[Rfam]
Shown here is a 94-nucleotide RNA from Ziziphus jujuba, a member of the family "Small nucleolar RNA SNORD34". Gene Ontology terms of the family: nucleolus and RNA processing. The base pairs follow the family's consensus structure, which was predicted with PFOLD. snoRNA U34 is found in intron 5 of the ribosomal protein L13a gene in humans.
RNA sequence: GAGGCCUGUGAUGAUUUCAAAACUAAUUUGCCUACAUUGUUUGAUUAUCUGCUUUUUUGGAUAAUGAAAAAUUAUAAUCAUAUCUGAGGCCUUC
Numbered sequence: 001g002a003g004g005c006c007u008g009u010g011a012u013g014a015u016u017u018c019a020a021a022a023c024u025a026a027u028u029u030g031c032c033u034a035c036a037u038u039g040u041u042u043g044a045u046u047a048u049c050u051g052c053u054u055u056u057u058u059g060g061a062u063a064a065u066g067a068a069a070a071a072u073u074a075u076a077a078u079c080a081u082a083u084c085u086g087a088g089g090c091c092u093u094c
Base pairs, nucleotide, nucleotide: 001093003091004090005089006088